[Rfam]
RNA sequence: ACCGCGUGCUAGAAGCCUGGAAGUAGAAGUAAUAUAUAUAUCAAUUUAAUAUCUGAUACGUGGCCCAUCGGGUCACAUGAUAUUAAAUUAAUUUUUUAUGGGGGAAGGCCCACCACAGUAACUUGCUAUUGGGUCUUCAAGCGUCGCCCAUGCGUUGCACUAUUGCACGGGCUUGGCGCACCCCGC
Numbered sequence: 001a002c003c004g005c006g007u008g009c010u011a012g013a014a015g016c017c018u019g020g021a022a023g024u025a026g027a028a029g030u031a032a033u034a035u036a037u038a039u040a041u042c043a044a045u046u047u048a049a050u051a052u053c054u055g056a057u058a059c060g061u062g063g064c065c066c067a068u069c070g071g072g073u074c075a076c077a078u079g080a081u082a083u084u085a086a087a088u089u090a091a092u093u094u095u096u097u098a099u100g101g102g103g104g105a106a107g108g109c110c111c112a113c114c115a116c117a118g119u120a121a122c123u124u125g126c127u128a129u130u131g132g133g134u135c136u137u138c139a140a141g142c143g144u145c146g147c148c149c150a151u152g153c154g155u156u157g158c159a160c161u162a163u164u165g166c167a168c169g170g171g172c173u174u175g176g177c178g179c180a181c182c183c184c185g186c
Base pairs, nucleotide, nucleotide: 039058040057041056042055043054060076061075062074063073064072065071066070104138105137106136107135108134109133110132111131118129119128120127141179142178143177144176145175146174148170149169151167152166153165
Record summary: Shown here is a 186-nucleotide RNA sequence from Carpinus fangiana, a member of the family "U2 spliceosomal RNA". U2 is a small nuclear RNA (snRNA) component of the spliceosome (involved in pre-mRNA splicing). Complementary binding between U2 snRNA (in an area lying towards the 5' end but 3' to hairpin I) and the branchpoint sequence (BPS) of the intron results the bulging out of an unpaired adenosine, on the BPS, which initiates a nucleophilic attack at the intronic 5' splice site, thus starting the first of two transesterification reactions that mediate splicing. It scores 76 bits against the family's covariance model. Taxonomically the source falls in Carpinus (Eukaryota, Streptophytina, Spermatophyta, eudicotyledons). The family's consensus secondary structure is taken from published work. The literature on the family includes a 1997 paper in Nucleic Acids Res by Zwieb, "The uRNA database".